[Rfam]
Nucleotides: 031
Base pairs, nucleotide, nucleotide: 001022002021003020004019005018008017009016010015
Number, partner (000 for none) and nucleotide at each position: 001022c002021u003020a004019u005018g006000a007000c008017a009016c010015a011000a012000g013000u014000a015010u016009g017008u018005c019004a020003u021002g022001g023000c024000g025000g026000a027000a028000g029000g030000a031000g
This 31-nucleotide sequence belongs to the Rfam family "L31-Firmicutes ribosomal protein leader".
The family's RNA type in Rfam is cis-regulatory leader.
On this family, see Eckert and Weinberg, BMC Microbiol 2020: "Discovery of 20 novel ribosomal leader candidates in bacteria and archaea".
Clan: Ribosomal Protein L31 Leader clan.